RNA sequence: GUGCAUUCGGUAGGAAUUGAACCUAUGUAUUCGCCAAUAAUGAGUUGGGUGCUUUAACAAUUUAUCCAUGGAUGC
Number, nucleotide and partner (000 for none) at each position: 001g000002u000003g075004c074005a073006u072007u071008c070009g000010g026011u025012a024013g023014g022015a000016a000017u000018u000019g000020a000021a000022c014023c013024u012025a011026u010027g000028u000029a000030u000031u000032c000033g000034c000035c000036a000037a000038u000039a000040a069041u068042g067043a000044g066045u000046u064047g063048g062049g061050u060051g000052c000053u000054u000055u000056a000057a000058c000059a000060a050061u049062u048063u047064a046065u000066c044067c042068a041069u040070g008071g007072a006073u005074g004075c003

Plastid-ycf2 5UTR RNA: a 75-nucleotide RNA sequence from Cynara cardunculus. The match comes from Rfam's covariance-model search (75 bits). The family's RNA type in Rfam is cis-regulatory element. Lineage of the source: Eukaryota > Viridiplantae > Streptophyta > Carduinae > Cynara cardunculus subsp. cardunculus. Rfam describes the family as follows. Plastid ycf2 is a non-coding RNA (ncRNA) recognised in plastids. It was found in the prime untranslated region (5UTR) of ycf2 genes, it presents a tRNA-like motif which suggests it can be involved in mRNA maturation, particularly involved in defining the precise 5' end of the transcript.